Annotation: Glycine riboswitch aptamer: an 87-nucleotide sequence from Pontivivens nitratireducens. Rfam links the family to the GO term glycine biosynthetic process. It scores 56 bits against the family's covariance model.
RNA sequence: GCUGUCUCACCGGGAGAACGCGGCCCCGCCGCUGCCGAAGAAGCAACCGCCCCGGAAACUUUCAGGUCACAGGACCGGUGGGAUAGC
Numbered sequence: 001g002c003u004g005u006c007u008c009a010c011c012g013g014g015a016g017a018a019c020g021c022g023g024c025c026c027c028g029c030c031g032c033u034g035c036c037g038a039a040g041a042a043g044c045a046a047c048c049g050c051c052c053c054g055g056a057a058a059c060u061u062u063c064a065g066g067u068c069a070c071a072g073g074a075c076c077g078g079u080g081g082g083a084u085a086g087c
Base pairs, nucleotide, nucleotide: 006082007081008080009079010078011077012076013075020032021031022030023029034067035066036065037063038062041061042060043059047055048054